[Rfam]
RNA sequence: GGCGGUUCUCAGGUGACACACUCCUGAAUCGGGCUCCCUCCUCUCUGGUCUGGGAUGUGUCACCUGAGAACCAAUGCU
Numbered sequence: 001g002g003c004g005g006u007u008c009u010c011a012g013g014u015g016a017c018a019c020a021c022u023c024c025u026g027a028a029u030c031g032g033g034c035u036c037c038c039u040c041c042u043c044u045c046u047g048g049u050c051u052g053g054g055a056u057g058u059g060u061c062a063c064c065u066g067a068g069a070a071c072c073a074a075u076g077c078u
Stems, first nucleotide, its partner, number of pairs: 002077002005071013019057002022054002025052002028049006
Shown here is a 78-nucleotide RNA sequence from Pipistrellus kuhlii, a member of the family "mir-9223 microRNA precursor family". A search with the family's covariance model found it, with a score of 65 bits. Rfam links the family to the GO terms RISC complex and miRNA-mediated post-transcriptional gene silencing. The family's consensus secondary structure was predicted with RNAalifold. Taxonomically the source falls in Pipistrellus (Eukaryota, Gnathostomata, Amniota, Boreoeutheria).